[Rfam]
The record is a 70-nucleotide RNA from Alligator mississippiensis, which matches "Mammalian CPEB3 ribozyme" in Rfam.
RNA sequence: AGAGGGGGGCCACAGCAGAAGCGCUCACAGCACAGCCCUGCCAGAUUCCAAUGAAUCUGCAAAUUCUGCU
Numbered sequence: 001a002g003a004g005g006g007g008g009g010c011c012a013c014a015g016c017a018g019a020a021g022c023g024c025u026c027a028c029a030g031c032a033c034a035g036c037c038c039u040g041c042c043a044g045a046u047u048c049c050a051a052u053g054a055a056u057c058u059g060c061a062a063a064u065u066c067u068g069c070u
Base pairs, nucleotide, nucleotide: 007038008037009036010035014070015069016068017067018066019065020064021033023031042059043058044057045056046055047054048053
Lineage of the source: Eukaryota > Craniata > Euteleostomi > Archosauria > Alligator. A search with the family's covariance model found it, with a score of 57 bits.